Shown here is an 84-nucleotide sequence from Clostridium fungisolvens, a member of the family "c-di-GMP-I-GGC riboswitch aptamer".
Lineage of the source: Bacteria > Bacillati > Bacillota > Clostridiaceae > Clostridium.
The family is grouped with related families in Rfam's "c-di-GMP_I riboswitch clan".
For this family Rfam cites "Bioinformatic analysis of riboswitch structures uncovers variant classes with altered ligand specificity" (Weinberg et al., Proc Natl Acad Sci U S A, 2017).
RNA sequence: CUUAAUAAAGGCAAACCUAUCGAAAGGUUGGGACGCAAAGCUAUGGAUCUAAGAAUUUGAUUUAUGAUUGCCAGGCUACUAAGU
Numbered sequence: 001c002u003u004a005a006u007a008a009a010g011g012c013a014a015a016c017c018u019a020u021c022g023a024a025a026g027g028u029u030g031g032g033a034c035g036c037a038a039a040g041c042u043a044u045g046g047a048u049c050u051a052a053g054a055a056u057u058u059g060a061u062u063u064a065u066g067a068u069u070g071c072c073a074g075g076c077u078a079c080u081a082a083g084u
Base pairs, nucleotide, nucleotide: 003081004080011036012035016031017030019028020027021026034070039077040076041075042074044073045072046071047068048067049066
Dot-bracket structure: ..((......((...((.(((....))).))..[))..((((.((((((................))).])))))))..))...